[Rfam]
RNA sequence: AUGGACGAUGCGGGAGAGUUCGGCGCGAAGGCGUGCGAACACCGAAGGAGCAAUCCUCCCCGACAAUCUCUCAGGUACUCGUACCGCAUCGAACUG
Numbered sequence: 001a002u003g004g005a006c007g008a009u010g011c012g013g014g015a016g017a018g019u020u021c022g023g024c025g026c027g028a029a030g031g032c033g034u035g036c037g038a039a040c041a042c043c044g045a046a047g048g049a050g051c052a053a054u055c056c057u058c059c060c061c062g063a064c065a066a067u068c069u070c071u072c073a074g075g076u077a078c079u080c081g082u083a084c085c086g087c088a089u090c091g092a093a094c095u096g
Stems, first nucleotide, its partner, number of pairs: 006091008019039004041076003044072002048070003054063002
Notes:
Glycine riboswitch aptamer: a 96-nucleotide sequence from Cryobacterium lyxosi. About the family: This family represents the bacterial glycine riboswitch. Taxonomically the source falls in Cryobacterium (Bacteria, Actinomycetota, Actinomycetes, Micrococcales).